[Rfam]
RNA sequence: CAAGAUCAGGCCUUGGCCGAAUGCAUAUAUUGCUCAGUUGAAUUGCUAAUAUUGCACUCGCCCCGGCCUGAUCUAA
Numbered sequence: 001c002a003a004g005a006u007c008a009g010g011c012c013u014u015g016g017c018c019g020a021a022u023g024c025a026u027a028u029a030u031u032g033c034u035c036a037g038u039u040g041a042a043u044u045g046c047u048a049a050u051a052u053u054g055c056a057c058u059c060g061c062c063c064c065g066g067c068c069u070g071a072u073c074u075a076a
Base pairs, nucleotide, nucleotide: 003074004073005072006071007070008069009068010067011066012065015063016062019059020058022056023055024054025053027052028051029050030049031048032046033045
A member of the RNA family "mir-235 microRNA precursor family" from Caenorhabditis remanei, 76 nucleotides long. It is one of the family's seed sequences. Gene Ontology terms of the family: RISC complex and miRNA-mediated post-transcriptional gene silencing. The source organism's lineage runs through Eukaryota, Metazoa, Nematoda, Chromadorea and Caenorhabditis.